The family of this 80-nucleotide RNA sequence from Clunio marinus is "mir-10 microRNA precursor family".
The family's consensus secondary structure was predicted with PFOLD.
Rfam 15.1 lists 3,853 matches to the family in 853 species.
[Rfam]
RNA sequence: UUACGCCUACCCUGUAGAUCCGAAUUUGUUCUAAUUAACAAACAGAACGACAAAUUCGGUUCUAGAGAGGUUUGUGUAUC
Number, nucleotide and partner (000 for none) at each position: 001u000002u078003a077004c076005g075006c074007c000008u000009a000010c070011c069012c000013u000014g000015u000016a063017g062018a061019u000020c059021c058022g057023a056024a055025u054026u053027u052028g051029u050030u049031c000032u000033a000034a000035u000036u000037a000038a000039c000040a000041a000042a000043c000044a000045g000046a000047a000048c000049g030050a029051c028052a027053a026054a025055u024056u023057c022058g021059g020060u000061u018062c017063u016064a000065g000066a000067g000068a000069g011070g010071u000072u000073u000074g006075u005076g004077u003078a002079u000080c000